Small nucleolar RNA SNORA31: a 133-nucleotide RNA sequence from Rousettus aegyptiacus. The match comes from Rfam's covariance-model search (46 bits). For this family Rfam cites "RNomics: an experimental approach that identifies 201 candidates for novel, small, non-messenger RNAs in mouse" (Huttenhofer et al., EMBO J, 2001). The family's RNA type in Rfam is H/ACA-box small nucleolar RNA. Rfam links the family to the GO terms nucleolus and RNA processing. Rfam's curators write: ACA31 (SNORA31) belongs to the H/ACA class of snoRNAs which are thought to guide the sites of modification of uridines to pseudouridines. ACA31 is predicted to guide the pseudouridylation of U3713 in 28S rRNA and U218 in 18S rRNA. This family includes the mouse homologue snoMBI-161. Pairs were carried over by alignment from the consensus structure, which was predicted with RNAalifold.
[Rfam]
RNA sequence: AUGUAUCUAUUGACAGACCUGGAACAACUACUCUCUGCAGCUGAAAUGUCCACUACAGGUGCAAGAAAAAAGUAUCCUUGCCCUUUCUGUCUGUCUGAUCAUGGCAGUCAAGAUUGAAUUAGGGACUACAGGA
Numbered sequence: 001a002u003g004u005a006u007c008u009a010u011u012g013a014c015a016g017a018c019c020u021g022g023a024a025c026a027a028c029u030a031c032u033c034u035c036u037g038c039a040g041c042u043g044a045a046a047u048g049u050c051c052a053c054u055a056c057a058g059g060u061g062c063a064a065g066a067a068a069a070a071a072g073u074a075u076c077c078u079u080g081c082c083c084u085u086u087c088u089g090u091c092u093g094u095c096u097g098a099u100c101a102u103g104g105c106a107g108u109c110a111a112g113a114u115u116g117a118a119u120u121a122g123g124g125a126c127u128a129c130a131g132g133a
Base pairs, nucleotide, nucleotide: 002063003062004061005060006059007058008057011052012051016050017049018048075125076124077123078122079121080120083116086113087112088111091107092106093105094104095103